[Rfam]
RNA sequence: UUAAAAGGAAGGCAACUUAAGUUCGCCGCGUCCUGGAAAGUGCCUUAAUUUCCACAAAGUACGCAGAAAUACGGCCAAUCGAACCCUUCGCUGUUCGAUCGGCAAUGGUUGCAUAACCAACUUCCUGUUGA
Numbered sequence: 001u002u003a004a005a006a007g008g009a010a011g012g013c014a015a016c017u018u019a020a021g022u023u024c025g026c027c028g029c030g031u032c033c034u035g036g037a038a039a040g041u042g043c044c045u046u047a048a049u050u051u052c053c054a055c056a057a058a059g060u061a062c063g064c065a066g067a068a069a070u071a072c073g074g075c076c077a078a079u080c081g082a083a084c085c086c087u088u089c090g091c092u093g094u095u096c097g098a099u100c101g102g103c104a105a106u107g108g109u110u111g112c113a114u115a116a117c118c119a120a121c122u123u124c125c126u127g128u129u130g131a
Base pairs, nucleotide, nucleotide: 012112013111014110015109016108017107025103026102027101028100118130119129120128121127
Dot-bracket structure: ...........((((((.......((((.......................................................................))))...)))))).....((((.....)))).

The family of this 131-nucleotide sequence from Sporosarcina sp. HYO08 is "Bacillaceae-1 RNA". The match comes from Rfam's covariance-model search (35 bits). Lineage of the source: Bacteria > Bacillati > Bacilli > Caryophanaceae > Sporosarcina.